Rfam assigns this 76-nucleotide RNA sequence from Geococcyx californianus to the family "mir-1 microRNA precursor family". On this family, see Lee and Ambros, Science 2001: "An extensive class of small RNAs in Caenorhabditis elegans". The base pairs follow the family's consensus structure, which was predicted with RNAalifold. The source organism's lineage runs through Eukaryota, Craniata, Gnathostomata, Tetrapoda and Geococcyx. Rfam 15.1 lists 4,474 matches to the family in 965 species. It scores 70 bits against the family's covariance model.
RNA sequence: UAUGAGAUGACAUGCUUCUUUAUAUCCCCAUAUGAAUUAGUCUGCUAUGGAAUGUAAGGAAGUGUGUGGUUUCAGG
Numbered sequence: 001u002a003u004g005a006g007a008u009g010a011c012a013u014g015c016u017u018c019u020u021u022a023u024a025u026c027c028c029c030a031u032a033u034g035a036a037u038u039a040g041u042c043u044g045c046u047a048u049g050g051a052a053u054g055u056a057a058g059g060a061a062g063u064g065u066g067u068g069g070u071u072u073c074a075g076g
Stems, first nucleotide, its partner, number of pairs: 007070002010067016028050005